[Rfam]
Nucleotides: 066
Base pairs, nucleotide, nucleotide: 005063006062010058012056015053016052017051020049021048022047023046024045025044026043027042028041029040
Number, partner (000 for none) and nucleotide at each position: 001000a002000c003000a004000a005063c006062g007000u008000u009000c010058g011000a012056a013000g014000c015053g016052u017051c018000g019000g020049u021048u022047u023046a024045c025044c026043g027042a028041g029040c030000a031000a032000u033000a034000u035000c036000a037000c038000c039000c040029g041028c042027u043026c044025g045024g046023u047022g048021g049020a050000a051017g052016a053015u054000a055000u056012u057000c058010c059000a060000u061000u062006c063005g064000c065000a066000u
Source information
The record is a 66-nucleotide sequence from Bombyx mori, which matches "mir-2774 microRNA precursor family" in Rfam. On this family, see Liu et al., BMC Genomics 2010: "MicroRNAs of Bombyx mori identified by Solexa sequencing". The match comes from Rfam's covariance-model search (67 bits).